[Rfam]
RNA sequence: UGUUGGAUGAUGAAAUAAAUCAGACGGAUUCCCAAUGAUAUUUUUUUACAUGAUAUCACAACCAGCUACUUCUGACAGCU
Numbered sequence: 001u002g003u004u005g006g007a008u009g010a011u012g013a014a015a016u017a018a019a020u021c022a023g024a025c026g027g028a029u030u031c032c033c034a035a036u037g038a039u040a041u042u043u044u045u046u047u048a049c050a051u052g053a054u055a056u057c058a059c060a061a062c063c064a065g066c067u068a069c070u071u072c073u074g075a076c077a078g079c080u
Base pairs, nucleotide, nucleotide: 002079003078004077005076
Small nucleolar RNA R12: an 80-nucleotide RNA sequence from Senna tora. Rfam describes the family as follows. snoR12 is a C/D box small nucleolar RNA, which acts as a methylation guide for 25S ribosomal RNA in plants. snoR12 has been alternatively named snoZ44 in Arabidopsis and snoZ131 in rice. The family has 9 seed sequences and 992 matches in Rfam 15.1. The literature on the family includes a 2003 paper in Nucleic Acids Res by Chen et al., "The high diversity of snoRNAs in plants: identification and comparative study of 120 snoRNA genes from Oryza sativa". The match comes from Rfam's covariance-model search (67 bits).